[Rfam]
RNA sequence: AGGCAGCCCCUUUGUCCGAUUACAAUGGCAAUGGAGGUGUUGCGUUUCUCGGAGAACAAAUCUUUUGAUCUUCGGAUUAGCUGAGGGGAGUUCAACAUUCCUCGUUGAGGCUCAUCUAGUAAGUCAUAAGAACAUC
Numbered sequence: 001a002g003g004c005a006g007c008c009c010c011u012u013u014g015u016c017c018g019a020u021u022a023c024a025a026u027g028g029c030a031a032u033g034g035a036g037g038u039g040u041u042g043c044g045u046u047u048c049u050c051g052g053a054g055a056a057c058a059a060a061u062c063u064u065u066u067g068a069u070c071u072u073c074g075g076a077u078u079a080g081c082u083g084a085g086g087g088g089a090g091u092u093c094a095a096c097a098u099u100c101c102u103c104g105u106u107g108a109g110g111c112u113c114a115u116c117u118a119g120u121a122a123g124u125c126a127u128a129a130g131a132a133c134a135u136c
Stems, first nucleotide, its partner, number of pairs: 002041004007037002009034002012031005062130003067125003074117004080111003085103006
The family of this 136-nucleotide RNA sequence from Panicum miliaceum is "Small nucleolar RNA snoR77". It scores 94 bits against the family's covariance model. A reference for the family is Marker et al. (2002), "Experimental RNomics: identification of 140 candidates for small non-messenger RNAs in the plant Arabidopsis thaliana", Curr Biol. Lineage of the source: Eukaryota > Viridiplantae > Poales > Panicoideae > Panicum sect. Panicum. Its family is annotated with nucleolus and RNA processing in the Gene Ontology. Rfam classes the family as an H/ACA-box small nucleolar RNA.